[Rfam]
RNA sequence: AGAACAAGAAGCUCUGGCAGCUUCUACAGCGCUUAUAUAAUCAGAAAUAUAUAUGCGCGUUCU
Numbered sequence: 001a002g003a004a005c006a007a008g009a010a011g012c013u014c015u016g017g018c019a020g021c022u023u024c025u026a027c028a029g030c031g032c033u034u035a036u037a038u039a040a041u042c043a044g045a046a047a048u049a050u051a052u053a054u055g056c057g058c059g060u061u062c063u
Stems, first nucleotide, its partner, number of pairs: 001063004007025007029058004034053006